[Rfam]
RNA sequence: UUCUUAUUGGAUGAUGACUGCCACGUGUCAUGUUCUGAUUGGAUGUCAACUCCAUGAAAGAUGAAAUACAUUGUUGUUUUCAUUGACCAAUCAGAAUAUGACACAUGGCAGUCAUAAUCU
Dot-bracket structure: ...................((((.((..(((.((((.(((................................................))).)))).)))..)).))))...........
RNA: MIR1520 microRNA precursor family